[Rfam]
RNA sequence: GUACCGUAAAGCCACACCCGUUGCGAGACGGGGCCGGAAAAUCCAGGAUCUGCCAAAACCAUCGCUUGCUGAAGAAACCGGUCCGCAUGCAGAUAGCCGGAGUGCCAGU
Numbered sequence: 001g002u003a004c005c006g007u008a009a010a011g012c013c014a015c016a017c018c019c020g021u022u023g024c025g026a027g028a029c030g031g032g033g034c035c036g037g038a039a040a041a042u043c044c045a046g047g048a049u050c051u052g053c054c055a056a057a058a059c060c061a062u063c064g065c066u067u068g069c070u071g072a073a074g075a076a077a078c079c080g081g082u083c084c085g086c087a088u089g090c091a092g093a094u095a096g097c098c099g100g101a102g103u104g105c106c107a108g109u
Base pairs, nucleotide, nucleotide: 012037013036017032018031019030020029021028022027040103042101043100046098047097048094049093050092051091052090053089
Annotation
Shown here is a 109-nucleotide RNA from Nitrosospira lacus, a member of the family "c-di-GMP-I riboswitch aptamer". Clan: c-di-GMP_I riboswitch clan. Rfam's curators write: GEMM was predicted in a large-scale screen for bacterial structured RNA regulatory elements. Gene Ontology term of the family: cyclic-di-GMP binding.